[Rfam]
RNA sequence: UUACUUGCAGCUGCAGCAUUAUCAAGAUUCACAUAGAAAUCAUGUGGGGCAGAAAACAUAGGUUCUAAAAAUCUAACCCCAAGUUCUUUGAACAUGAGAAUCUUGAUGAUGCUGCAUCAGCAAAUAA
Numbered sequence: 001u002u003a004c005u006u007g008c009a010g011c012u013g014c015a016g017c018a019u020u021a022u023c024a025a026g027a028u029u030c031a032c033a034u035a036g037a038a039a040u041c042a043u044g045u046g047g048g049g050c051a052g053a054a055a056a057c058a059u060a061g062g063u064u065c066u067a068a069a070a071a072u073c074u075a076a077c078c079c080c081a082a083g084u085u086c087u088u089u090g091a092a093c094a095u096g097a098g099a100a101u102c103u104u105g106a107u108g109a110u111g112c113u114g115c116a117u118c119a120g121c122a123a124a125u126a127a
Stems, first nucleotide, its partner, number of pairs: 010118001012116019032096002